[Rfam]
RNA: RT-6 RNA
RNA sequence: UGCAUUACGAUAAAAAGACGUAAUGGAAAAGGAUUGUUGUCAAUGCUGUUAUGCCGAAUUUAUUCAUAAAUUCUAGA
Numbered sequence: 001u002g003c004a005u006u007a008c009g010a011u012a013a014a015a016a017g018a019c020g021u022a023a024u025g026g027a028a029a030a031g032g033a034u035u036g037u038u039g040u041c042a043a044u045g046c047u048g049u050u051a052u053g054c055c056g057a058a059u060u061u062a063u064u065c066a067u068a069a070a071u072u073c074u075a076g077a
Stems, first nucleotide, its partner, number of pairs: 003025007056072002059070004
Dot-bracket structure: ..(((((((.........)))))))..............................((.((((....)))))).....